[Rfam]
RNA sequence: AUCUACAGUACGCCGAAUUUCGCGAAAAGCGAAUACGGGGGAACCAGUUUUUGGGGUGAAUCCCGAAAGGGAGGGGCUACCUUUCGGCCCUAACCCGUCAGCUAACCCCGGAGGCGGAGAAAGGAGGGGUA
Numbered sequence: 001a002u003c004u005a006c007a008g009u010a011c012g013c014c015g016a017a018u019u020u021c022g023c024g025a026a027a028a029g030c031g032a033a034u035a036c037g038g039g040g041g042a043a044c045c046a047g048u049u050u051u052u053g054g055g056g057u058g059a060a061u062c063c064c065g066a067a068a069g070g071g072a073g074g075g076g077c078u079a080c081c082u083u084u085c086g087g088c089c090c091u092a093a094c095c096c097g098u099c100a101g102c103u104a105a106c107c108c109c110g111g112a113g114g115c116g117g118a119g120a121a122a123g124g125a126g127g128g129g130u131a
Stems, first nucleotide, its partner, number of pairs: 011116004019033005036110005045053002054096003062071003074090004